A member of the RNA family "c-di-GMP-I-GGC riboswitch aptamer", 85 nucleotides long. It is one of the family's seed sequences. A reference for the family is Smith et al. (2009), "Structural basis of ligand binding by a c-di-GMP riboswitch", Nat Struct Mol Biol. The base pairs follow the family's consensus structure, which is taken from published work.

RNA sequence: CCACGAUUAGGCAAACCCUGCAAAAGCAGGGGGCGCGAAGCUAAAGGGCCUAAGGGCAAAAGCCUAUGGCAGCCAGUUGCCGACG
Numbered sequence: 001c002c003a004c005g006a007u008u009a010g011g012c013a014a015a016c017c018c019u020g021c022a023a024a025a026g027c028a029g030g031g032g033g034c035g036c037g038a039a040g041c042u043a044a045a046g047g048g049c050c051u052a053a054g055g056g057c058a059a060a061a062g063c064c065u066a067u068g069g070c071a072g073c074c075a076g077u078u079g080c081c082g083a084c085g
Base pairs, nucleotide, nucleotide: 001085011036012035016031017030018029019028020027021026034072039078040077041076042075046074047073048070049069050068